[Rfam]
RNA: Fluoride riboswitch aptamer (crcB RNA motif)
RNA sequence: CAUGUAUAAGGCGAUGGAGUUCGCCUUAACCGCCGAGAGCUAAUGACUCCUACCAGUUU
Numbered sequence: 001c002a003u004g005u006a007u008a009a010g011g012c013g014a015u016g017g018a019g020u021u022c023g024c025c026u027u028a029a030c031c032g033c034c035g036a037g038a039g040c041u042a043a044u045g046a047c048u049c050c051u052a053c054c055a056g057u058u059u
Stems, first nucleotide, its partner, number of pairs: 010025004016050006032040002